[Rfam]
RNA sequence: AAGGUGGAAUCCGAAAAACCGGAAUAGAGUAGGAG
Numbered sequence: 001a002a003g004g005u006g007g008a009a010u011c012c013g014a015a016a017a018a019c020c021g022g023a024a025u026a027g028a029g030u031a032g033g034a035g
Stems, first nucleotide, its partner, number of pairs: 003020003010034003
Overview: Rfam assigns this 35-nucleotide sequence from Sphingobacterium psychroaquaticum to the family "DUF805b RNA".